[Rfam]
RNA sequence: CGGCCGGGACCGCCUAAUCCCGGGCGCGUCGCCCGGGAGCCGGGGACCCACCGUACCUGGGGUGAAUCCACGUCGUCCGUGGUAGGGACCUCCCAUCCCGAACCCGUCAGCUAACCCGGCCGGCAGAGGGAGAGGAAUC
Numbered sequence: 001c002g003g004c005c006g007g008g009a010c011c012g013c014c015u016a017a018u019c020c021c022g023g024g025c026g027c028g029u030c031g032c033c034c035g036g037g038a039g040c041c042g043g044g045g046a047c048c049c050a051c052c053g054u055a056c057c058u059g060g061g062g063u064g065a066a067u068c069c070a071c072g073u074c075g076u077c078c079g080u081g082g083u084a085g086g087g088a089c090c091u092c093c094c095a096u097c098c099c100g101a102a103c104c105c106g107u108c109a110g111c112u113a114a115c116c117c118g119g120c121c122g123g124c125a126g127a128g129g130g131a132g133a134g135g136a137a138u139c
Stems, first nucleotide, its partner, number of pairs: 012124003018038009039120006049059002060105003068082004085099004